[Rfam]
RNA sequence: GGACUAGCUUUAGCUCAGCGGUUCCUUCGCGGUUCUACAAAUUAACCAAACACCUCGUGUGUGGUUCGAGCCCCGCGGGCGCUUUCUAGUCCUUUU
Numbered sequence: 001g002g003a004c005u006a007g008c009u010u011u012a013g014c015u016c017a018g019c020g021g022u023u024c025c026u027u028c029g030c031g032g033u034u035c036u037a038c039a040a041a042u043u044a045a046c047c048a049a050a051c052a053c054c055u056c057g058u059g060u061g062u063g064g065u066u067c068g069a070g071c072c073c074c075g076c077g078g079g080c081g082c083u084u085u086c087u088a089g090u091c092c093u094u095u096u
Stems, first nucleotide, its partner, number of pairs: 002091006013080004018076004026070004
A member of the RNA family "Vault RNA" from Nannospalax galili, 96 nucleotides long. A search with the family's covariance model found it, with a score of 83 bits.